[Rfam]
RNA sequence: UCCAUCGUGAGGUGGAAUCUGAAGGAAGUCGGCGGCAAAUCUCUGGUCUGAGGAAUACGAACUUCAUAUAAGGCUAACAUUCGUUGGAUGAGGUUGCGCGACAAACCAAAGUCCUUACUGCCGAAGGCGAAUGGGAGUAAAUGAAGCAGAUAGAUGGAGAGGAAGAUAGCGUU
Number, nucleotide and partner (000 for none) at each position: 001u016002c015003c014004a013005u012006c011007g000008u000009g000010a000011g006012g005013u004014g003015g002016a001017a000018u000019c000020u000021g000022a000023a000024g000025g000026a000027a000028g173029u000030c171031g170032g000033c000034g000035g000036c165037a000038a000039a000040u160041c159042u158043c157044u156045g155046g151047u150048c149049u148050g147051a000052g000053g000054a000055a000056u000057a000058c000059g000060a000061a000062c146063u145064u144065c143066a142067u141068a000069u000070a000071a000072g000073g138074c137075u136076a000077a000078c133079a132080u131081u130082c129083g128084u000085u000086g114087g113088a112089u111090g000091a000092g107093g106094u105095u104096g000097c000098g000099c000100g000101a000102c000103a000104a095105a094106c093107c092108a000109a000110a000111g089112u088113c087114c086115u000116u000117a000118c000119u000120g000121c000122c000123g000124a000125a000126g000127g000128c083129g082130a081131a080132u079133g078134g000135g000136a075137g074138u073139a000140a000141a067142u066143g065144a064145a063146g062147c050148a049149g048150a047151u046152a000153g000154a000155u045156g044157g043158a042159g041160a040161g000162g000163a000164a000165g036166a000167u000168a000169g000170c031171g030172u000173u028
Description:
Group II catalytic intron D1-D4-3: a 173-nucleotide RNA sequence from Paenibacillus sedimenti. Taxonomically the source falls in Paenibacillus (Bacteria, Bacillati, Bacilli, Caryophanales). The pairing is the family consensus, mapped onto this sequence.